[Rfam]
RNA sequence: AACACCUUUUAAAAUAACCCAGAGAGGUUAUUAAGGGUGUAAGGUUUUUGCGAAGGAGGGGUAUGUUUUCCUGUACCCUUUUUUAACCAAAACCAUGUUCCAUACACCCUUACCUUAUAUUGGUAAGGGUGUUUUUUUA
Numbered sequence: 001a002a003c004a005c006c007u008u009u010u011a012a013a014a015u016a017a018c019c020c021a022g023a024g025a026g027g028u029u030a031u032u033a034a035g036g037g038u039g040u041a042a043g044g045u046u047u048u049u050g051c052g053a054a055g056g057a058g059g060g061g062u063a064u065g066u067u068u069u070c071c072u073g074u075a076c077c078c079u080u081u082u083u084u085a086a087c088c089a090a091a092a093c094c095a096u097g098u099u100c101c102a103u104a105c106a107c108c109c110u111u112a113c114c115u116u117a118u119a120u121u122g123g124u125a126a127g128g129g130u131g132u133u134u135u136u137u138u139a
Stems, first nucleotide, its partner, number of pairs: 003039007014031006053084013102134001104132011

Description:
Rfam assigns this 139-nucleotide sequence from Bacillus sp. HNG to the family "PyrR binding site". Lineage of the source: Bacteria > Bacillati > Bacillota > Bacillaceae > Bacillus. By type it is a cis-regulatory element.